Shown here is a 67-nucleotide sequence from Pomacea canaliculata, a member of the family "mir-33 microRNA precursor family". It scores 58 bits against the family's covariance model. Lineage of the source: Eukaryota > Metazoa > Gastropoda > Caenogastropoda > Pomacea. On this family, see Li et al., BMC Genomics 2009: "Direct sequencing and expression analysis of a large number of miRNAs in Aedes aegypti and a multi-species survey of novel mosquito miRNAs".

[Rfam]
RNA sequence: UGGUAGUGCAUUGAGGUUGCAUUGCAUCAGCUGAGAAACAUGCAAUGCAUCUGCAGUGCAAAUAUCA
Numbered sequence: 001u002g003g004u005a006g007u008g009c010a011u012u013g014a015g016g017u018u019g020c021a022u023u024g025c026a027u028c029a030g031c032u033g034a035g036a037a038a039c040a041u042g043c044a045a046u047g048c049a050u051c052u053g054c055a056g057u058g059c060a061a062a063u064a065u066c067a
Stems, first nucleotide, its partner, number of pairs: 001067004006063001007060007015052002019048001021046007